This 89-nucleotide RNA sequence from Cnephaeus nilssonii belongs to the Rfam family "mir-9195 microRNA precursor family".

Nucleotides: 089
Base pairs, nucleotide, nucleotide: 004086005085006084013076014075015074016073017072018071021069023068024067025066026065027064028063029062030061031060032059033058034057035056040051041050042049043048
Number, partner (000 for none) and nucleotide at each position: 001000a002000g003000a004086g005085g006084u007000c008000c009000a010000u011000c012000c013076g014075c015074g016073g017072c018071u019000g020000a021069g022000c023068g024067c025066g026065g027064a028063a029062u030061g031060c032059u033058u034057g035056c036000c037000u038000c039000a040051u041050c042049a043048c044000c045000g046000u047000g048043g049042u050041g051040a052000c053000a054000a055000a056035g057034c058033a059032a060031g061030c062029a063028u064027u065026c066025c067024g068023c069021c070000a071018g072017g073016c074015c075014g076013c077000u078000c079000a080000c081000g082000c083000u084006g085005c086004c087000u088000g089000c
Its family is annotated with miRNA-mediated post-transcriptional gene silencing and RISC complex in the Gene Ontology.